[Rfam]
RNA sequence: GCAGUCCGCCCCAUGGACGCCCUGACCGCCCGGGGUGCCAUCCGGCUAGGCUGGCGUCGUGCGCCUUCCCCAAGAAGGACGCAAAGCCGACAGCCGUCGCAUCCCUGGGAGAUCAUCCAUG
Numbered sequence: 001g002c003a004g005u006c007c008g009c010c011c012c013a014u015g016g017a018c019g020c021c022c023u024g025a026c027c028g029c030c031c032g033g034g035g036u037g038c039c040a041u042c043c044g045g046c047u048a049g050g051c052u053g054g055c056g057u058c059g060u061g062c063g064c065c066u067u068c069c070c071c072a073a074g075a076a077g078g079a080c081g082c083a084a085a086g087c088c089g090a091c092a093g094c095c096g097u098c099g100c101a102u103c104c105c106u107g108g109g110a111g112a113u114c115a116u117c118c119a120u121g
Base pairs, nucleotide, nucleotide: 060083061082062081063080065077066076067075068074086100087099089098090097091096

The record is a 121-nucleotide RNA from Streptomyces sp. WZ.A104, which matches "Streptomyces-metH RNA" in Rfam. The match comes from Rfam's covariance-model search (116 bits). NCBI's taxonomy places the organism under Bacteria, Actinomycetota, Actinomycetes, Kitasatosporales, Streptomyces. Rfam classes the family as a small RNA. The family's consensus secondary structure is taken from published work.